[Rfam]
RNA: c-di-AMP riboswitch aptamer (ydaO/yuaA leader)
RNA sequence: GGGCGGAUGCCGCCGAGUCGCCCUCCGGGGCGAGCCGGGGACCCACCGCACCACUGGGGUGAAUCCCGCGGGGCCGGACACCGUCCGCCCGCAGGUAGGGCUGCUUCCCGCCCGAACCCGUCAGCUGACCCGGUAGGCGGCCAUCGGGAGAACGG
Dot-bracket structure: ..........((((...(((((......)))))((((((....((.........))(((.....((.(((((...............))))).))..((((........))))...))).........)))))).))))................